[Rfam]
RNA sequence: GCAGACUCACUCUGUCCUGAACUGCAGCCUUCAGUUCAGGUGCUUUUUCUGUCUGCGAGAGUAAUAGUACACAGGAGUGACAAUUGCCUUCUUUCUUGUAGAAGGCUGUUACAAUUGCUGUUGGGACAUUGCU
Numbered sequence: 001g002c003a004g005a006c007u008c009a010c011u012c013u014g015u016c017c018u019g020a021a022c023u024g025c026a027g028c029c030u031u032c033a034g035u036u037c038a039g040g041u042g043c044u045u046u047u048u049c050u051g052u053c054u055g056c057g058a059g060a061g062u063a064a065u066a067g068u069a070c071a072c073a074g075g076a077g078u079g080a081c082a083a084u085u086g087c088c089u090u091c092u093u094u095c096u097u098g099u100a101g102a103a104g105g106c107u108g109u110u111a112c113a114a115u116u117g118c119u120g121u122u123g124g125g126a127c128a129u130u131g132c133u
Base pairs, nucleotide, nucleotide: 001056002055003054004053005052006051014043015042016040017039018038019037020036022034023033024032068124070123071122072120073119074118076115078113079112082110086106087105088104089103